[Rfam]
RNA: Small nucleolar RNA SNORA67
Organism: Crocuta crocuta
RNA sequence: GUCCAAGGUGAUUCCCUCUCCGAGGGGCCUGCCCGUGCCCUCCUCCGGAAAGUAGCAGCUUGGGACAGGACGUGGCACGCCCGAGGCCGCGGCGGGCGUGGACGCUGGUGUCCUCUGCCUGCCUCCGGCUGCCCACACUU
Numbered sequence: 001g002u003c004c005a006a007g008g009u010g011a012u013u014c015c016c017u018c019u020c021c022g023a024g025g026g027g028c029c030u031g032c033c034c035g036u037g038c039c040c041u042c043c044u045c046c047g048g049a050a051a052g053u054a055g056c057a058g059c060u061u062g063g064g065a066c067a068g069g070a071c072g073u074g075g076c077a078c079g080c081c082c083g084a085g086g087c088c089g090c091g092g093c094g095g096g097c098g099u100g101g102a103c104g105c106u107g108g109u110g111u112c113c114u115c116u117g118c119c120u121g122c123c124u125c126c127g128g129c130u131g132c133c134c135a136c137a138c139u140u
Stems, first nucleotide, its partner, number of pairs: 002064006009057002019049003022043001024041005075130001078128001083123001091114002094111001096109001